[Rfam]
RNA: mir-574 microRNA precursor family
RNA sequence: AGGCCCAAAGAGAGAGGCAGGAUAUGAUCCUCAGCCUCUAUGGCAGCUGUUGAUCAGCCAUUGCCUCUCUUUCUCUCCA
Number, nucleotide and partner (000 for none) at each position: 001a000002g000003g000004c000005c000006c000007a000008a071009a070010g069011a000012g000013a068014g067015a066016g065017g064018c063019a062020g061021g000022a000023u000024a000025u056026g055027a054028u053029c052030c000031u000032c049033a048034g047035c046036c000037u000038c000039u000040a000041u000042g000043g000044c000045a000046g035047c034048u033049g032050u000051u000052g029053a028054u027055c026056a025057g000058c000059c000060a000061u020062u019063g018064c017065c016066u015067c014068u013069c010070u009071u008072u000073c000074u000075c000076u000077c000078c000079a000